[Rfam]
RNA sequence: GACCGACGGUGCGAGGAAUACAAUACCGAAAGGGAAUAACUCCGCCAGAUUGUGUACUGGUUUUGAGCCGUUGGUCGCCCAAUU
Numbered sequence: 001g002a003c004c005g006a007c008g009g010u011g012c013g014a015g016g017a018a019u020a021c022a023a024u025a026c027c028g029a030a031a032g033g034g035a036a037u038a039a040c041u042c043c044g045c046c047a048g049a050u051u052g053u054g055u056a057c058u059g060g061u062u063u064u065g066a067g068c069c070g071u072u073g074g075u076c077g078c079c080c081a082a083u084u
Stems, first nucleotide, its partner, number of pairs: 001076009013043001015041001017037001026033002044061005
Dot-bracket structure: (((((((((...(.(.(........((....))...)...).)(((((........)))))......)))))))))........
Rfam assigns this 84-nucleotide RNA from Haemophilus influenzae to the family "sRNA-Xcc1".
Taxonomically the source falls in Haemophilus influenzae (Bacteria, Gammaproteobacteria, Pasteurellales, Pasteurellaceae).
The family's consensus secondary structure was predicted with RNAalifold.
The sequence is in the family's curated seed alignment.
The family's RNA type in Rfam is small RNA.